[Rfam]
Shown here is a 55-nucleotide sequence from Cynara cardunculus, a member of the family "Plastid-ccsA-ndhD-1 3UTR RNA". Rfam describes the family as follows. Plastid-ccsA-ndhD-1 is a non-coding RNA (ncRNA) recognised in plastids. Its Rfam clan is "Plastid-ccsA_ndhD 3UTR RNA clan". Rfam 15.1 lists 1,322 matches to the family in 557 species. Rfam classes the family as a cis-regulatory element.
RNA sequence: AAGUGGGCGAGAACCAUGUGAAUCAAAGAGUGUAGUGAUUCACAUGGUUCUCGCA
Numbered sequence: 001a002a003g004u005g006g007g008c009g010a011g012a013a014c015c016a017u018g019u020g021a022a023u024c025a026a027a028g029a030g031u032g033u034a035g036u037g038a039u040u041c042a043c044a045u046g047g048u049u050c051u052c053g054c055a
Base pairs, nucleotide, nucleotide: 007054008053009052010051011050012049013048014047015046016045017044018043019042020041021040022039023038024037025036